[Rfam]
mir-320 microRNA precursor family: a 76-nucleotide RNA from Saimiri boliviensis. For this family Rfam cites "Many novel mammalian microRNA candidates identified by extensive cloning and RAKE analysis" (Berezikov et al., Genome Res, 2006). The base pairs follow the family's consensus structure, which was predicted with RNAalifold. Taxonomically the source falls in Saimiri boliviensis (Eukaryota, Deuterostomia, Boreoeutheria, Cebidae). A search with the family's covariance model found it, with a score of 82 bits.
RNA sequence: UGAAGUUGUUGCCUUCUCUUCCCAGUUCUUCCUGGAGUUGGGAAAAGCUGGGUUGAGUGGGCAAAAAAAAAAAAAG
Numbered sequence: 001u002g003a004a005g006u007u008g009u010u011g012c013c014u015u016c017u018c019u020u021c022c023c024a025g026u027u028c029u030u031c032c033u034g035g036a037g038u039u040g041g042g043a044a045a046a047g048c049u050g051g052g053u054u055g056a057g058u059g060g061g062c063a064a065a066a067a068a069a070a071a072a073a074a075a076g
Stems, first nucleotide, its partner, number of pairs: 014059001016057003021052005029044006